About this RNA: The record is a 134-nucleotide RNA from Alkaliphilus sp., which matches "c-di-AMP riboswitch aptamer (ydaO/yuaA leader)" in Rfam.
RNA sequence: CAAUUUAUAACGCUGAAUUCUUUUUACUUAGAGGAACGGGGGAACCAAUUUUGGGGUGAAUCUCUUUUUGAGUAGGGUUAUCUUCUUUCGACCCGAAUCCGUCAGCUAACCUCGUAAGCGUUGAAAGAGGAGAU
Numbered sequence: 001c002a003a004u005u006u007a008u009a010a011c012g013c014u015g016a017a018u019u020c021u022u023u024u025u026a027c028u029u030a031g032a033g034g035a036a037c038g039g040g041g042g043a044a045c046c047a048a049u050u051u052u053g054g055g056g057u058g059a060a061u062c063u064c065u066u067u068u069u070g071a072g073u074a075g076g077g078u079u080a081u082c083u084u085c086u087u088u089c090g091a092c093c094c095g096a097a098u099c100c101g102u103c104a105g106c107u108a109a110c111c112u113c114g115u116a117a118g119c120g121u122u123g124a125a126a127g128a129g130g131a132g133a134u
Base pairs, nucleotide, nucleotide: 011120012119013118014117018035019034020033021032022031023030036115037114038113039112040111041110046053047052054100055099056098062072063071064070075094076093077092078091
NCBI's taxonomy places the organism under Bacteria, Bacillota, Clostridia, Peptostreptococcales, Alkaliphilus.